The record is a 78-nucleotide RNA from Danio rerio, which matches "mir-27 microRNA precursor family" in Rfam.
[Rfam]
RNA sequence: UGUGGUGUCAGGACUUAACCCACUUGUGAACAAUGCAUCGAACUUCAAUGUUCACAGUGGUUAAGUUCUGCCGCCCCU
Numbered sequence: 001u002g003u004g005g006u007g008u009c010a011g012g013a014c015u016u017a018a019c020c021c022a023c024u025u026g027u028g029a030a031c032a033a034u035g036c037a038u039c040g041a042a043c044u045u046c047a048a049u050g051u052u053c054a055c056a057g058u059g060g061u062u063a064a065g066u067u068c069u070g071c072c073g074c075c076c077c078u
Stems, first nucleotide, its partner, number of pairs: 011068010026055007
On this family, see Chen et al., Genes Dev 2005: "The developmental miRNA profiles of zebrafish as determined by small RNA cloning". Pairs were carried over by alignment from the consensus structure, which was predicted with RNAalifold. The source organism's lineage runs through Eukaryota, Actinopterygii, Actinopteri, Neopterygii and Danio. Rfam's curators put it in the seed alignment.